[Rfam]
RNA sequence: GUUGGCAAGUGAUGUGAUUUCAAAUCUUAUCCUACACACUGAAUUCAUUUUGUGGACUAACUACUCCGCUUAUUAUCUGAUGCCAAU
Number, nucleotide and partner (000 for none) at each position: 001g000002u000003u085004g084005g083006c082007a081008a000009g000010u000011g000012a000013u000014g000015u000016g000017a000018u000019u000020u000021c000022a000023a000024a000025u000026c000027u000028u000029a000030u000031c000032c000033u000034a000035c000036a000037c000038a000039c000040u000041g000042a000043a000044u000045u000046c000047a000048u000049u000050u000051u000052g000053u000054g000055g000056a000057c000058u000059a000060a000061c000062u000063a000064c000065u000066c000067c000068g000069c000070u000071u000072a000073u000074u000075a000076u000077c000078u000079g000080a000081u007082g006083c005084c004085a003086a000087u000
This 87-nucleotide RNA from Zingiber officinale belongs to the Rfam family "Small nucleolar RNA R16". The literature on the family includes a 2002 paper in Mol Cell Biol by Galardi et al., "Purified box C/D snoRNPs are able to reproduce site-specific 2'-O-methylation of target RNA in vitro". Rfam links the family to the GO terms RNA processing and nucleolus.